This 37-nucleotide RNA sequence belongs to the Rfam family "Iron response element I".
Rfam links the family to the GO term response to iron ion.
The family has 62 seed sequences and 6,829 matches in Rfam 15.1.
[Rfam]
RNA sequence: CGCAGUUCUUGCUUCAACAGUGCUUGAACGGAACUCG
Dot-bracket structure: ((.((((((.(.((((((...).))))))))))))))
Numbered sequence: 001c002g003c004a005g006u007u008c009u010u011g012c013u014u015c016a017a018c019a020g021u022g023c024u025u026g027a028a029c030g031g032a033a034c035u036c037g
Stems, first nucleotide, its partner, number of pairs: 001037002004035006011029001013028005018022001
Pairs were carried over by alignment from the consensus structure, which is taken from published work.
The family's RNA type in Rfam is cis-regulatory element.